[Rfam]
Nucleotides: 588
Base pairs, nucleotide, nucleotide: 011587012586013585019584021458022457023456024455028451029450030449349445350444351443353440354439355438356437357436361433362432363431364430365429366428367411368410371407372406373405374404375403376402377401378400382393383392384391419426420425463504464503465502466501467500468499473497477493478492479491480490515583516582517581518576519575520574522560523559524558527555529553530552531551534548536547537546538545563570564569
Number, partner (000 for none) and nucleotide at each position: 001000a002000a003000a004000g005000u006000u007000g008000u009000u010000g011587c012586g013585g014000u015000u016000a017000a018000a019584a020000c021458g022457c023456u024455c025000g026000u027000a028451g029450u030449c031000g032000g033000c034000u035000u036000c037000a038000g039000a040000c041000c042000a043000u044000c045000a046000g047000a048000a049000g050000c051000c052000u053000g054000g055000c056000u057000c058000g059000g060000g061000g062000u063000c064000u065000c066000g067000g068000g069000u070000c071000u072000g073000u074000g075000c076000c077000u078000c079000g080000c081000a082000a083000g084000g085000g086000g087000u088000g089000c090000g091000c092000c093000u094000u095000g096000g097000u098000c099000u100000u101000g102000g103000g104000c105000c106000g107000g108000g109000u110000g111000g112000g113000c114000g115000g116000c117000g118000g119000u120000c121000a122000a123000u124000c125000g126000u127000g128000c129000c130000c131000a132000g133000u134000g135000g136000c137000g138000u139000g140000u141000c142000g143000c144000g145000g146000c147000u148000u149000g150000c151000c152000g153000u154000g155000g156000c157000u158000u159000a160000c161000a162000g163000g164000g165000c166000c167000u168000u169000c170000g171000g172000g173000a174000u175000c176000a177000a178000a179000a180000c181000c182000c183000g184000g185000c186000u187000u188000c189000c190000g191000c192000a193000a194000g195000g196000g197000g198000g199000u200000c201000g202000g203000g204000u205000c206000c207000c208000g209000u210000c211000g212000g213000u214000c215000u216000g217000g218000c219000u220000c221000u222000g223000g224000g225000u226000a227000c228000c229000a230000a231000u232000u233000a234000c235000c236000a237000u238000g239000a240000u241000u242000a243000a244000a245000c246000c247000g248000g249000a250000g251000u252000g253000a254000u255000c256000a257000a258000a259000g260000c261000a262000a263000a264000c265000c266000g267000c268000u269000g270000c271000g272000g273000u274000u275000a276000c277000u278000g279000c280000a281000c282000g283000g284000a285000u286000u287000a288000g289000c290000a291000u292000g293000g294000c295000a296000u297000a298000a299000g300000g301000a302000u303000g304000c305000g306000u307000c308000g309000g310000g311000u312000u313000g314000g315000u316000c317000u318000c319000g320000u321000a322000g323000c324000g325000g326000g327000c328000c329000u330000c331000c332000u333000c334000g335000g336000c337000a338000a339000u340000u341000c342000c343000g344000c345000g346000a347000a348000a349445g350444g351443g352000g353440u354439g355438u356437u357436c358000g359000g360000g361433g362432g363431c364430a365429g366428c367411c368410g369000a370000a371407u372406u373405g374404c375403c376402g377401g378400g379000c380000u381000a382393g383392u384391g385000g386000u387000g388000a389000a390000a391384u392383a393382c394000g395000u396000u397000g398000a399000c400378c401377c402376u403375g404374g405373c406372a407371a408000g409000u410368c411367g412000a413000c414000c415000g416000a417000a418000a419426g420425c421000g422000a423000a424000a425420g426419c427000a428366g429365c430364u431363g432362u433361c434000a435000a436357g437356g438355g439354c440353a441000c442000a443351c444350c445349c446000g447000u448000u449030g450029a451028u452000c453000a454000a455024g456023a457022g458021c459000g460000a461000a462000a463504g464503u465502u466501a467500a468499g469000g470000g471000u472000u473497c474000g475000a476000a477493g478492a479491c480490g481000a482000u483000c484000a485000g486000a487000u488000a489000c490480c491479g492478u493477c494000g495000u496000a497473g498000u499468c500467u501466u502465a503464a504463c505000u506000a507000u508000a509000a510000a511000u512000g513000a514000u515583a516582c517581u518576g519575g520574c521000c522560a523559g524558g525000g526000a527555u528000a529553g530552g531551g532000c533000a534548a535000u536547g537546u538545c539000c540000a541000u542000c543000u544000c545538g546537a547536c548534u549000c550000c551531c552530c553529c554000c555527g556000g557000a558524c559523u560522u561000u562000u563570g564569g565000g566000a567000a568000a569564c570563c571000a572000a573000a574520g575519c576518c577000u578000a579000u580000g581517a582516g583515u584019u585013c586012u587011g588000g